[Rfam]
RNA sequence: CCGCCGGGACGACUCGGCGGCUGUGUGCUGAGUGGGGACGGCCCC
Numbered sequence: 001c002c003g004c005c006g007g008g009a010c011g012a013c014u015c016g017g018c019g020g021c022u023g024u025g026u027g028c029u030g031a032g033u034g035g036g037g038a039c040g041g042c043c044c045c
Base pairs, nucleotide, nucleotide: 001020002019003018004017005016006015007014008013034045035044036043037042